RNA sequence: CGGACUGCUUUGAUACAUGUGUGAGCAAUGAGUCAUCUCUUGCACAUCACAUUGGAGUCCAACAUAAAUUACGUCUUCUGAUGACUGUGGUGUAUGAAGUUACAAACCACGGACAGAUACGAGGCGAACAAAC
Numbered sequence: 001c002g003g004a005c006u007g008c009u010u011u012g013a014u015a016c017a018u019g020u021g022u023g024a025g026c027a028a029u030g031a032g033u034c035a036u037c038u039c040u041u042g043c044a045c046a047u048c049a050c051a052u053u054g055g056a057g058u059c060c061a062a063c064a065u066a067a068a069u070u071a072c073g074u075c076u077u078c079u080g081a082u083g084a085c086u087g088u089g090g091u092g093u094a095u096g097a098a099g100u101u102a103c104a105a106a107c108c109a110c111g112g113a114c115a116g117a118u119a120c121g122a123g124g125c126g127a128a129c130a131a132a133c
Base pairs, nucleotide, nucleotide: 002060003059004058005057006056017047018046019045020044024040025039070127072126073125074124075123076122077121085112086111087110090107091106093105
The family of this 133-nucleotide RNA sequence from Capitella teleta is "Small Cajal body specific RNA 8".
About the family: scaRNAs are a specific class of small nuclear RNAs which localise to the Cajal bodies and guide the modification of RNA polymerase II transcribed spliceosomal RNAs U1, U2, U4, U5 and U12.
NCBI's taxonomy places the organism under Eukaryota, Opisthokonta, Metazoa, Scolecida, Capitella.
The family's RNA type in Rfam is small Cajal body RNA.
The family's consensus secondary structure is taken from published work.